RNA sequence: GUGGCAUGACGAUGGGCGCCGAGUCGAUCGCCGCUCGCAGUGCCCGCAUCGCUUGAACCCUGACCACGGAUGUACUGGUGCCGGUGACAUGCGAUGAUGAGGAAGGUCGGUGCGAUUUCGCCCCGGCCUUUUUUGUU
Numbered sequence: 001g002u003g004g005c006a007u008g009a010c011g012a013u014g015g016g017c018g019c020c021g022a023g024u025c026g027a028u029c030g031c032c033g034c035u036c037g038c039a040g041u042g043c044c045c046g047c048a049u050c051g052c053u054u055g056a057a058c059c060c061u062g063a064c065c066a067c068g069g070a071u072g073u074a075c076u077g078g079u080g081c082c083g084g085u086g087a088c089a090u091g092c093g094a095u096g097a098u099g100a101g102g103a104a105g106g107u108c109g110g111u112g113c114g115a116u117u118u119c120g121c122c123c124c125g126g127c128c129u130u131u132u133u134u135g136u137u
Stems, first nucleotide, its partner, number of pairs: 003045002007039001014036005048095005054089001057085003061080002064078003097136014112121003
Rfam assigns this 137-nucleotide sequence from Pseudorhizobium pelagicum to the family "Alphaproteobacterial sRNA ar35". The literature on the family includes a 2012 paper in RNA Biol by del Val et al., "A survey of sRNA families in alpha-proteobacteria". A search with the family's covariance model found it, with a score of 86 bits. The organism belongs to Pseudorhizobium, within Bacteria.